[Rfam]
RNA sequence: AUGAAGGCAGGGGGAGAGACUACAUUUGUAGCGCCGAAGGAGCAAGCUUAGCAGCGAAUCUCUCAGGCAAAAGAACCCUUGUUGGACG
Numbered sequence: 001a002u003g004a005a006g007g008c009a010g011g012g013g014g015a016g017a018g019a020c021u022a023c024a025u026u027u028g029u030a031g032c033g034c035c036g037a038a039g040g041a042g043c044a045a046g047c048u049u050a051g052c053a054g055c056g057a058a059u060c061u062c063u064c065a066g067g068c069a070a071a072a073g074a075a076c077c078c079u080u081g082u083u084g085g086a087c088g
Stems, first nucleotide, its partner, number of pairs: 006083008020031004033068003036064002040062003046055002

Annotation
The family of this 88-nucleotide sequence from Peribacillus loiseleuriae is "Glycine riboswitch aptamer". The base pairs follow the family's consensus structure. Gene Ontology term of the family: glycine biosynthetic process. The match comes from Rfam's covariance-model search (71 bits).